[Rfam]
Nucleotides: 062
Base pairs, nucleotide, nucleotide: 002044003043004042005041008038009037010036011035012034048061050059
Number, partner (000 for none) and nucleotide at each position: 001000g002044g003043u004042a005041g006000g007000a008038g009037c010036c011035u012034g013000g014000u015000c016000c017000c018000a019000u020000c021000u022000a023000c024000g025000g026000a027000u028000g029000a030000g031000a032000c033000g034012u035011g036010g037009g038008u039000g040000a041005c042004u043003g044002c045000g046000u047000g048061c049000c050059u051000u052000u053000u054000g055000c056000a057000u058000u059050a060000u061048g062000a